[Rfam]
Nucleotides: 106
Stems, first nucleotide, its partner, number of pairs: 006072005015031004020027002032059003037055003041050002045101003074090004
Number, partner (000 for none) and nucleotide at each position: 001000c002000c003000g004000a005000a006072a007071c008070a009069u010068c011000a012000a013000g014000a015031g016030c017029a018028g019000u020027a021026u022000u023000a024000g025000a026021a027020u028018c029017u030016g031015c032059a033058c034057c035000a036000a037055c038054c039053g040000a041050g042049c043000a044000c045101g046100a047099c048000a049042g050041c051000c052000a053039c054038g055037g056000u057034g058033g059032u060000c061000a062000a063000g064000g065000u066000a067000c068010g069009a070008u071007g072006u073000g074090g075089a076088a077087a078000u079000a080000a081000g082000u083000u084000u085000a086000a087077u088076u089075u090074c091000a092000a093000a094000a095000a096000c097000a098000a099047g100046u101045c102000u103000u104000u105000a106000u